Shown here is a 67-nucleotide sequence from Myripristis murdjan, a member of the family "mir-33 microRNA precursor family". The family has 73 seed sequences and 1,467 matches in Rfam 15.1.
Nucleotides: 067
Stems, first nucleotide, its partner, number of pairs: 001067002004064001006063001007061004013055004019049001021047007
Number, partner (000 for none) and nucleotide at each position: 001067c002066u003000g004064u005000g006063g007061u008060g009059c010058a011000u012000u013055g014054u015053a016052g017000u018000u019049g020000c021047a022046u023045u024044g025043c026042a027041u028000g029000u030000u031000u032000g033000c034000u035000g036000a037000c038000g039000c040000u041027g042026u043025g044024c045023a046022a047021u048000g049019u050000u051000u052016c053015u054014g055013c056000u057000u058010u059009g060008c061007a062000a063006c064004a065000g066002a067001g